Shown here is a 109-nucleotide sequence from Paspalum vaginatum, a member of the family "Plant small nucleolar RNA R71".
The family's consensus secondary structure was predicted with PFOLD.
RNA sequence: AUGCCUUGGUGGGGGCAGGCAGCGAUGUACUCCUAGAGUCUUUCCCAGGCCUCCACCACGGUUUUAUCAGUGAGCUGUUAAAAGCUCGAUAUCUUGUUCCUCAAUGCGU
Numbered sequence: 001a002u003g004c005c006u007u008g009g010u011g012g013g014g015g016c017a018g019g020c021a022g023c024g025a026u027g028u029a030c031u032c033c034u035a036g037a038g039u040c041u042u043u044c045c046c047a048g049g050c051c052u053c054c055a056c057c058a059c060g061g062u063u064u065u066a067u068c069a070g071u072g073a074g075c076u077g078u079u080a081a082a083a084g085c086u087c088g089a090u091a092u093c094u095u096g097u098u099c100c101u102c103a104a105u106g107c108g109u
Stems, first nucleotide, its partner, number of pairs: 001109001003107002006103001057074001060071001